[Rfam]
About this RNA
This 290-nucleotide sequence from Pleodorina starrii belongs to the Rfam family "Plant signal recognition particle RNA".
RNA sequence: GCUGGGGGGAGUCGCGUCCCUCUGUCACCCGAGUGGGGGCUGAUGGUUGGAAGUAACGUAUGCUUCAGCCGGUCUAGUUCGCCUGCGUCGAUGGCGUGUCCGCUCUGAGUCUACAGUCGGCAACGGUCCUUCCCUGACGGGGGGUGGUCGUGGUUGAUGAUUAAUCCGGGACCGCGUGAGGCAGUAACCUGAGCAGCGAAAACGGAUAGCUGCGGGCGGCAGACGGAUCGCAUGCCUGAGUGGGCGGCUAGGCCACCCGGCUGGGCCUCUAUGGGGCAACCAACUGUUUU
Numbered sequence: 001g002c003u004g005g006g007g008g009g010a011g012u013c014g015c016g017u018c019c020c021u022c023u024g025u026c027a028c029c030c031g032a033g034u035g036g037g038g039g040c041u042g043a044u045g046g047u048u049g050g051a052a053g054u055a056a057c058g059u060a061u062g063c064u065u066c067a068g069c070c071g072g073u074c075u076a077g078u079u080c081g082c083c084u085g086c087g088u089c090g091a092u093g094g095c096g097u098g099u100c101c102g103c104u105c106u107g108a109g110u111c112u113a114c115a116g117u118c119g120g121c122a123a124c125g126g127u128c129c130u131u132c133c134c135u136g137a138c139g140g141g142g143g144g145u146g147g148u149c150g151u152g153g154u155u156g157a158u159g160a161u162u163a164a165u166c167c168g169g170g171a172c173c174g175c176g177u178g179a180g181g182c183a184g185u186a187a188c189c190u191g192a193g194c195a196g197c198g199a200a201a202a203c204g205g206a207u208a209g210c211u212g213c214g215g216g217c218g219g220c221a222g223a224c225g226g227a228u229c230g231c232a233u234g235c236c237u238g239a240g241u242g243g244g245c246g247g248c249u250a251g252g253c254c255a256c257c258c259g260g261c262u263g264g265g266c267c268u269c270u271a272u273g274g275g276g277c278a279a280c281c282a283a284c285u286g287u288u289u290u
Stems, first nucleotide, its partner, number of pairs: 001040003004023007028037003042288009053277002058270001060268001062266002065264006071254008080246001083244002086240001093236007100226002104223004109217004114212004118156004123151004128147002131144005157162001164207005175198003182191003
It is annotated as a non-coding RNA gene.